[Rfam]
RNA sequence: ACUCCUCAGCCUUCCUCCAAGGGCUCAUGCCUGCUGAGUGCCCUGGCAUUGUCUGAGGAUAGUCCAGCAAGCACCGUCCUCCCCAGUGAGACUCUGCUAACUUUUGGGGCCUGCUAGGUGAGCUGAUGGU
Numbered sequence: 001a002c003u004c005c006u007c008a009g010c011c012u013u014c015c016u017c018c019a020a021g022g023g024c025u026c027a028u029g030c031c032u033g034c035u036g037a038g039u040g041c042c043c044u045g046g047c048a049u050u051g052u053c054u055g056a057g058g059a060u061a062g063u064c065c066a067g068c069a070a071g072c073a074c075c076g077u078c079c080u081c082c083c084c085a086g087u088g089a090g091a092c093u094c095u096g097c098u099a100a101c102u103u104u105u106g107g108g109g110c111c112u113g114c115u116a117g118g119u120g121a122g123c124u125g126a127u128g129g130u
Base pairs, nucleotide, nucleotide: 003059004058005057006056007055008054009053011051017046018045019044021042022041023039024038025037026036027035070124071123072122074120081109082108083107084106085105086104088103089102090101
The record is a 130-nucleotide RNA sequence from Otolemur garnettii, which matches "Small nucleolar RNA SNORA49" in Rfam. Rfam's curators write: The snoRNA ACA49 has no identified RNA target. NB genomic sequence 1-nt different from published. By type it is an H/ACA-box small nucleolar RNA. Gene Ontology terms of the family: RNA processing and nucleolus. The organism belongs to Otolemur, within Eukaryota.